[Rfam]
RNA sequence: AGAAAUUUGAAGGAAUCUGCUUCUAGUACGAGAGGACCGAAGUGGACAAACCUCUGGUUUACCAGUUGUAUCAUCAGAUGCAUCGCUGGGUAGCUACGUUUGGAAGGGAUAAGCGCUGAAAGCAUAUAAGCACGAAGCCCAUCCUAAGAUUAGAUUUCUCAUAUCGUAAGAUAAUAAGAAUCGUUGGAGAUGACGACGUUGAUAGGCUAUAGGUGUAAGUGCAGUAAUGCAUUCAGCCAAGUAGUACUAAUUUUUCGAAG
Numbered sequence: 001a002g003a004a005a006u007u008u009g010a011a012g013g014a015a016u017c018u019g020c021u022u023c024u025a026g027u028a029c030g031a032g033a034g035g036a037c038c039g040a041a042g043u044g045g046a047c048a049a050a051c052c053u054c055u056g057g058u059u060u061a062c063c064a065g066u067u068g069u070a071u072c073a074u075c076a077g078a079u080g081c082a083u084c085g086c087u088g089g090g091u092a093g094c095u096a097c098g099u100u101u102g103g104a105a106g107g108g109a110u111a112a113g114c115g116c117u118g119a120a121a122g123c124a125u126a127u128a129a130g131c132a133c134g135a136a137g138c139c140c141a142u143c144c145u146a147a148g149a150u151u152a153g154a155u156u157u158c159u160c161a162u163a164u165c166g167u168a169a170g171a172u173a174a175u176a177a178g179a180a181u182c183g184u185u186g187g188a189g190a191u192g193a194c195g196a197c198g199u200u201g202a203u204a205g206g207c208u209a210u211a212g213g214u215g216u217a218a219g220u221g222c223a224g225u226a227a228u229g230c231a232u233u234c235a236g237c238c239a240a241g242u243a244g245u246a247c248u249a250a251u252u253u254u255u256c257g258a259a260g
Stems, first nucleotide, its partner, number of pairs: 001159008011145004017045007047102005055096003062089005067082006106140003113133001115131003162173003175258001178256003182198005203249003206245005212238002219232005
The family of this 260-nucleotide part of an RNA from uncultured Fidelibacterota bacterium HF0010_18O13 is "Bacterial large subunit ribosomal RNA". Its family is annotated with structural constituent of ribosome and ribosome in the Gene Ontology.